Shown here is an 82-nucleotide RNA, a member of the family "Proteo-phage-1 RNA".

[Rfam]
RNA sequence: CCCUAGCCGGGAGGGGCCGCAAGGCAUAGCCCGGAUGCGCAUCAGUCGGCCAGUGGCGCAUUCAUGAAAAACCCCGACAGCC
Numbered sequence: 001c002c003c004u005a006g007c008c009g010g011g012a013g014g015g016g017c018c019g020c021a022a023g024g025c026a027u028a029g030c031c032c033g034g035a036u037g038c039g040c041a042u043c044a045g046u047c048g049g050c051c052a053g054u055g056g057c058g059c060a061u062u063c064a065u066g067a068a069a070a071a072c073c074c075c076g077a078c079a080g081c082c
Stems, first nucleotide, its partner, number of pairs: 001015004007034005016025003036060005045078005